[Rfam]
This 136-nucleotide RNA sequence from Oryzias javanicus belongs to the Rfam family "U11 spliceosomal RNA".
RNA sequence: AAAAAGGGCUUCUGUCAUGAUUGGCACAGGGGAGGGAGGGGACCCCUCUCUCCCUUGCGGAAUCGCUAUCAAGAGAUUUCGGAAGCACAAUUUUUGUUAUUCGAGGCUGCUAGUGACCACUGUUCCUGGCGCCUCC
Dot-bracket structure: .......((((((((((....)))))((((((((((((.......))))))))))))(((((((..........)))))))))))).................((((.(((((.((.(...).)))))))))))..
The family's consensus secondary structure is taken from published work.